[Rfam]
RNA: Bacterial RNase P class A
Organism: Dyadobacter sp. Leaf189
Nucleotides: 410
Stems, first nucleotide, its partner, number of pairs: 001406002004403007011395001012351007020039002023036005044393003048390005053238004065234005070084005085112001086110007113229002118227002120223003135169002137165008177195006196218001198215003202211003242308004252299006279292005315334008
Number, partner (000 for none) and nucleotide at each position: 001406g002405g003000a004403g005402u006401g007400a008399g009398c010397u011395g012351u013350c014349c015348u016347a017346c018345c019000g020039c021038u022000g023036c024035g025034g026033u027032a028000u029000u030000u031000u032027u033026a034025c035024c036023g037000g038021a039020g040000a041000g042000g043000a044393a045392a046391g047000u048390c049389c050388g051387g052386g053238c054237a055236g056235c057000g058000c059000a060000g061000a062000g063000c064000g065234c066233c067232g068231u069230a070084c071083u072082u073081c074080c075000u076000a077000a078000c079000a080074g081073g082072a083071a084070g085112g086110c087109a088108a089107a090106a091105a092104g093000u094000u095000g096000g097000g098000a099000a100000c101000g102000g103000c104092u105091u106090u107089u108088u109087u110086g111000a112085c113229a114228g115000c116000a117000a118227g119226u120223g121222c122221c123000a124000c125000a126000g127000a128000a129000a130000u131000g132000a133000u134000a135169c136168c137165g138164c139163c140162u141161u142160g143159g144158c145000a146000u147000g148000u149000u150000u151000u152000u153000u154000a155000u156000a157000g158144g159143u160142u161141g162140a163139g164138g165137u166000a167000a168136g169135g170000g171000u172000g173000a174000a175000a176000u177195g178194g179193u180192g181191g182190g183000g184000u185000a186000a187000g188000a189000g190182c191181c192180c193179a194178c195177c196218g197000a198215c199214c200213g201000g202211c203210u204209g205000g206000c207000g208000a209204c210203a211202g212000g213200c214199g215198g216000g217000g218196c219000a220000a221122g222121g223120u224000a225000a226119a227118c228114c229113u230069u231068a232067c233066g234065g235056g236055c237054u238053g239000a240000a241000a242308g243307a244306u245305c246000a247000a248000a249000u250000a251000g252299g253298u254297g255296u256295u257294g258000g259000u260000u261000u262000g263000c264000g265000g266000g267000g268000c269000u270000g271000c272000u273000c274000g275000u276000c277000c278000c279292c280291g281290u282289u283288c284000u285000u286000c287000g288283g289282a290281a291280c292279g293000c294257c295256g296255g297254c298253a299252c300000g301000g302000g303000u304000a305245g306244a307243u308242c309000g310000u311000u312000a313000g314000a315334g316333g317332u318331c319330c320329a321328g322327g323000g324000c325000g326000a327322c328321c329320u330319g331318g332317a333316u334315c335000c336000u337000g338000g339000a340000u341000a342000a343000a344000u345018g346017g347016u348015a349014g350013g351012a352000g353000u354000u355000u356000u357000c358000g359000g360000g361000c362000a363000c364000u365000c366000a367000g368000g369000u370000g371000c372000a373000c374000g375000g376000a377000g378000a379000a380000a381000c382000a383000g384000a385000a386052u387051c388050c389049g390048g391046c392045u393044u394000a395011u396000a397010g398009g399008c400007u401006u402005g403004c404000c405002c406001c407000u408000u409000u410000u